[Rfam]
This 151-nucleotide sequence from Evansella cellulosilytica belongs to the Rfam family "EGFOA RNA". Taxonomically the source falls in Evansella cellulosilytica (Bacteria, Bacillota, Bacillaceae, Evansella). By type it is a small RNA.
RNA sequence: GUUUUCCCAGAUGCCUUUCAAGAUUAUUUUGAGAGGAAUUGCCCGUACUAAUCGCUAAUAGCGAGGUAGAGGUAGGUUAUUGCAGUGAUGCAAGAGUUGUAAAGUUAGACCUGGGGACUUAAUUAAUAUUGUGUGUUAAUUUAACCUACUA
Numbered sequence: 001g002u003u004u005u006c007c008c009a010g011a012u013g014c015c016u017u018u019c020a021a022g023a024u025u026a027u028u029u030u031g032a033g034a035g036g037a038a039u040u041g042c043c044c045g046u047a048c049u050a051a052u053c054g055c056u057a058a059u060a061g062c063g064a065g066g067u068a069g070a071g072g073u074a075g076g077u078u079a080u081u082g083c084a085g086u087g088a089u090g091c092a093a094g095a096g097u098u099g100u101a102a103a104g105u106u107a108g109a110c111c112u113g114g115g116g117a118c119u120u121a122a123u124u125a126a127u128a129u130u131g132u133g134u135g136u137u138a139a140u141u142u143a144a145c146c147u148a149c150u151a
Stems, first nucleotide, its partner, number of pairs: 006115005045110002048108004052064005071150007080093004094120005